[Rfam]
This 78-nucleotide RNA sequence from Kryptolebias marmoratus belongs to the Rfam family "mir-9/mir-79 microRNA precursor family". On this family, see Lagos-Quintana et al., Science 2001: "Identification of novel genes coding for small expressed RNAs".
RNA sequence: CUGCUCCUGUCUUUGGUUAUCUAGCUGUAUGAGUGUAAAGCGUCCGUCAUAAAGCUAGAUAACCGAAAGUAGGAAUCG
Dot-bracket structure: (.(.(.((((.(((((((((((((((.(((((..............))))).))))))))))))))).)))).).).)
Numbered sequence: 001c002u003g004c005u006c007c008u009g010u011c012u013u014u015g016g017u018u019a020u021c022u023a024g025c026u027g028u029a030u031g032a033g034u035g036u037a038a039a040g041c042g043u044c045c046g047u048c049a050u051a052a053a054g055c056u057a058g059a060u061a062a063c064c065g066a067a068a069g070u071a072g073g074a075a076u077c078g
Stems, first nucleotide, its partner, number of pairs: 001078001003076001005074001007072004012067015028051005
The source organism's lineage runs through Eukaryota, Opisthokonta, Eurypterygia, Acanthomorphata and Kryptolebias.